[Rfam]
Shown here is a 117-nucleotide RNA from Cajanus cajan, a member of the family "Small nucleolar RNA Z278". Rfam links the family to the GO terms nucleolus and RNA processing. Rfam classes the family as a C/D-box small nucleolar RNA. Rfam's curators write: snoZ278 is a C/D box small nucleolar RNA. Its methylation guide targets have not been reported. The match comes from Rfam's covariance-model search (47 bits).
RNA sequence: ACCAAUGAUGUUACAAUCCAACUUGUCCCGGAUUGUAGUUUAGCCAAGUCCCUCUUCUGAGGGAGAACCUUCUUGGUGUUGCUACAUUUCCUAUGGCAGCAAAGAUUAAACUGAGGU
Numbered sequence: 001a002c003c004a005a006u007g008a009u010g011u012u013a014c015a016a017u018c019c020a021a022c023u024u025g026u027c028c029c030g031g032a033u034u035g036u037a038g039u040u041u042a043g044c045c046a047a048g049u050c051c052c053u054c055u056u057c058u059g060a061g062g063g064a065g066a067a068c069c070u071u072c073u074u075g076g077u078g079u080u081g082c083u084a085c086a087u088u089u090c091c092u093a094u095g096g097c098a099g100c101a102a103a104g105a106u107u108a109a110a111c112u113g114a115g116g117u
Base pairs, nucleotide, nucleotide: 001117002116003115050063051062052061053060054059